[Rfam]
RNA: c-di-GMP-I riboswitch aptamer
Organism: Cytobacillus solani
RNA sequence: UUUGGUAAGGGGCAAAUCUAUUGAAAAAUAGAGACGCAAAACUAUAGGGGCUAAAGUAUGAUGAGUAUACCAAGCCAGCCAGUUGCUGAA
Numbered sequence: 001u002u003u004g005g006u007a008a009g010g011g012g013c014a015a016a017u018c019u020a021u022u023g024a025a026a027a028a029u030a031g032a033g034a035c036g037c038a039a040a041a042c043u044a045u046a047g048g049g050g051c052u053a054a055a056g057u058a059u060g061a062u063g064a065g066u067a068u069a070c071c072a073a074g075c076c077a078g079c080c081a082g083u084u085g086c087u088g089a090a
Stems, first nucleotide, its partner, number of pairs: 012037002017032006040084004047080002049076003056070004